[Rfam]
DUF3800-XI RNA: a 48-nucleotide RNA sequence. From the family's description: Actinobacteria, Firmicutes, Proteobacteria, Spirochaetes (1 example). Rfam classes the family as a small RNA.
RNA sequence: UGGGCUGGUCGUAAGAUCUGGGUCCACCACAUGGCGGGGAAGACACCC
Numbered sequence: 001u002g003g004g005c006u007g008g009u010c011g012u013a014a015g016a017u018c019u020g021g022g023u024c025c026a027c028c029a030c031a032u033g034g035c036g037g038g039g040a041a042g043a044c045a046c047c048c
Stems, first nucleotide, its partner, number of pairs: 001026006007018004